[Rfam]
RNA sequence: GUGUUUUCAUGGUAUUAGAUUUAAGGUUAAAGACAACGGGUCAUCGUGAUGAUGACCCGUUAGUUUUUUUAGC
Numbered sequence: 001g002u003g004u005u006u007u008c009a010u011g012g013u014a015u016u017a018g019a020u021u022u023a024a025g026g027u028u029a030a031a032g033a034c035a036a037c038g039g040g041u042c043a044u045c046g047u048g049a050u051g052a053u054g055a056c057c058c059g060u061u062a063g064u065u066u067u068u069u070u071a072g073c
Stems, first nucleotide, its partner, number of pairs: 039057007
Shown here is a 73-nucleotide RNA sequence from Muribaculaceae bacterium Isolate-110, a member of the family "Bacteroidetes FopS (family of paralogous sRNAs)". Rfam's curators write: The RNA-binding protein RbpB and BTncRNA_FopS sRNA are involved in the post-transcription regulation of polysaccharide utilisation loci (PUL). FopS sRNAs function as post-transcriptional repressors by binding to the vicinity of the start codon of the first mRNA of target PUL polycistrons, typically corresponding to the cognate SusC homolog, impeding translation of the respective glycan transporter. The organism belongs to Muribaculaceae, within Bacteria. It scores 62 bits against the family's covariance model. On this family, see Ruttiger et al., Nat Commun 2025: "The global RNA-binding protein RbpB is a regulator of polysaccharide utilization in Bacteroides thetaiotaomicron".